The family of this 391-nucleotide part of an RNA from Candidatus Caldarchaeum subterraneum is "Archaeal large subunit ribosomal RNA". It scores 2451 bits against the family's covariance model. Gene Ontology terms of the family: structural constituent of ribosome and ribosome.
[Rfam]
RNA sequence: GAAGACCCUGUGGAGCUUUACUGCAGCCUGUCGCUGGGAUGUGGACGGAUGUGCAGAGCGUAGCCGGGAGCCGUCGAUCCCCGUCUCUCCGGGGGCGGGGGGAGGCGACGAUGUAACACCGGCCACGUCUGUCUGCAUCUCUCACCGGCGCGAAAGCGCUGGAACAACGGCAGGUGGGCAGUUUGGCUGGGGCGGCACCCCCUCGAAAAGAUAUCGAGGGGGCCCAAAGGUCGGCUUAGGCGGGACAGAAACCCGCCGUGAAGUGCAAGGGCAAAAGCCGGCUUGACAGGGCCCUUGAAAGCCAGGGGCCCUGAGGGGAAACCCAGGCCUAGCGAUCCAUCGGCUCCUACCAGUGGGGGCCGGUGGUGACAGAAAAGUUACCCCAGGGAUA
Numbered sequence: 001g002a003a004g005a006c007c008c009u010g011u012g013g014a015g016c017u018u019u020a021c022u023g024c025a026g027c028c029u030g031u032c033g034c035u036g037g038g039a040u041g042u043g044g045a046c047g048g049a050u051g052u053g054c055a056g057a058g059c060g061u062a063g064c065c066g067g068g069a070g071c072c073g074u075c076g077a078u079c080c081c082c083g084u085c086u087c088u089c090c091g092g093g094g095g096c097g098g099g100g101g102g103a104g105g106c107g108a109c110g111a112u113g114u115a116a117c118a119c120c121g122g123c124c125a126c127g128u129c130u131g132u133c134u135g136c137a138u139c140u141c142u143c144a145c146c147g148g149c150g151c152g153a154a155a156g157c158g159c160u161g162g163a164a165c166a167a168c169g170g171c172a173g174g175u176g177g178g179c180a181g182u183u184u185g186g187c188u189g190g191g192g193c194g195g196c197a198c199c200c201c202c203u204c205g206a207a208a209a210g211a212u213a214u215c216g217a218g219g220g221g222g223c224c225c226a227a228a229g230g231u232c233g234g235c236u237u238a239g240g241c242g243g244g245a246c247a248g249a250a251a252c253c254c255g256c257c258g259u260g261a262a263g264u265g266c267a268a269g270g271g272c273a274a275a276a277g278c279c280g281g282c283u284u285g286a287c288a289g290g291g292c293c294c295u296u297g298a299a300a301g302c303c304a305g306g307g308g309c310c311c312u313g314a315g316g317g318g319a320a321a322c323c324c325a326g327g328c329c330u331a332g333c334g335a336u337c338c339a340u341c342g343g344c345u346c347c348u349a350c351c352a353g354u355g356g357g358g359g360c361c362g363g364u365g366g367u368g369a370c371a372g373a374a375a376a377g378u379u380a381c382c383c384c385a386g387g388g389a390u391a
Base pairs, nucleotide, nucleotide: 007387008386009385010384012383013382014379015378016377017376018375020182021181022180023179027174028173029172030171031170032169033168036141037140038139039138040137041136042135043134044133045132046131047130048129049128050127051126052125053124063123064122065121066120067119070106071105072104082097083096085094086093087092145162146161147160148159149158150157185198186196187195188194199221200220201219202218203217204216224327225326230282231281232280233279234278235277236262237261239257240256241255242254243253244252263272264271287313288312289311290310291309292308293307294306295305315324317322338365339364340363341362342361343360345359346358347357348356